This 164-nucleotide RNA sequence from Anaerosporobacter mobilis belongs to the Rfam family "glmS glucosamine-6-phosphate activated ribozyme aptamer". Gene Ontology terms of the family: catalytic activity and regulation of gene expression.

RNA sequence: UUGAUAAAAUUAGCGCCAUGUACCUUUGUCUGGGCGGAAAAAGCAAAGGGUAACGAGGUAAAAGGUGUUCGAAACUUCGGCGGGGACCUUUUCGUAUUCUUGGAUGCGUAAUAUAUCUUUAAAUACCUGAGUAAUCAGGGAACAAAGAGGUAUAACCAAGCUGU
Number, nucleotide and partner (000 for none) at each position: 001u000002u000003g000004a000005u000006a000007a000008a000009a000010u000011u000012a000013g000014c000015g000016c000017c000018a000019u000020g000021u000022a000023c000024c049025u048026u047027u046028g000029u000030c043031u000032g000033g000034g000035c000036g000037g000038a000039a000040a000041a000042a000043g030044c000045a000046a027047a026048g025049g024050g000051u000052a000053a000054c000055g000056a000057g000058g000059u000060a092061a091062a090063a089064g088065g000066u000067g000068u000069u080070c079071g078072a077073a000074a000075c000076u000077u072078c071079g070080g069081c000082g000083g000084g000085g000086a000087c000088c064089u063090u062091u061092u060093c108094g107095u106096a105097u104098u000099c000100u000101u000102g000103g000104a097105u096106g095107c094108g093109u000110a000111a000112u154113a153114u152115a151116u150117c149118u148119u000120u000121a000122a000123a000124u000125a000126c139127c138128u137129g136130a135131g000132u000133a000134a000135u130136c129137a128138g127139g126140g000141a000142a000143c000144a000145a000146a000147g000148a118149g117150g116151u115152a114153u113154a112155a000156c000157c000158a000159a000160g000161c000162u000163g000164u000

Notes
The match comes from Rfam's covariance-model search (63 bits). Rfam's curators write: This entry contains a glucosamine-6-phosphate activated ribozyme that is found in the mRNA for GlmS. GlmS is an enzyme that uses fructose-6-phosphate and glutamine to generate glucosamine-6-phosphate. Pairs were carried over by alignment from the consensus structure, which is taken from published work. Taxonomically the source falls in Anaerosporobacter mobilis (Bacteria, Bacillati, Lachnospirales, Lachnospiraceae).